[Rfam]
RNA sequence: AGGAAUCCGACUGGGUCGACCUUAGAACACGUGAUUGUUUUUUGAUUUCGAUAUGGUUCGUUUCAUGUGUUCUCAGGUCGCCCCUGUCGGGUUUCC
Dot-bracket structure: ......((..(.((..(((....(((((((((................................)))))))))....)))..)).)..))......